The record is a 96-nucleotide RNA sequence, which matches "RT-8 RNA" in Rfam. The family's consensus secondary structure is taken from published work.

RNA sequence: AUGGUGCUCCUUAAUUGAGGGUGCUUGGCUAUACUGAGGGCUGUUAACUACUUAAGUGGUUAGGGACUACCGCAAUCCUAAGCCCUUAGUUUUGCU
Number, nucleotide and partner (000 for none) at each position: 001a000002u000003g025004g024005u023006g022007c021008u020009c019010c000011u000012u000013a000014a000015u000016u000017g000018a000019g009020g008021g007022u006023g005024c004025u003026u000027g000028g000029c000030u000031a000032u000033a000034c000035u088036g087037a086038g085039g084040g083041c082042u081043g000044u000045u062046a061047a060048c059049u058050a057051c056052u000053u000054a000055a000056g051057u050058g049059g048060u047061u046062a045063g000064g000065g000066a000067c000068u000069a000070c000071c000072g000073c000074a000075a000076u000077c000078c000079u000080a000081a042082g041083c040084c039085c038086u037087u036088a035089g000090u000091u000092u000093u000094g000095c000096u000